[Rfam]
RNA sequence: UGGUCGGAAGUGAGAAUUGGAUGAAACUAAACACGAAGGCAGUUGAGCUCCGUUUCCUGCAUUCUGUUUAGUUUUCUCCAAUAUCUCAUCUCCGAUCU
Dot-bracket structure: ...(((((..((((.((((((.((((((((.((...............................)).)))))))).))))))..))))..)))))...
Background
The record is a 98-nucleotide RNA from Apium graveolens, which matches "MIR2275 microRNA precursor family" in Rfam. The family has 13 seed sequences and 785 matches in Rfam 15.1. Lineage of the source: Eukaryota > Mesangiospermae > Apiineae > Apiaceae > Apium. Gene Ontology terms of the family: miRNA-mediated post-transcriptional gene silencing and RISC complex. A search with the family's covariance model found it, with a score of 69 bits.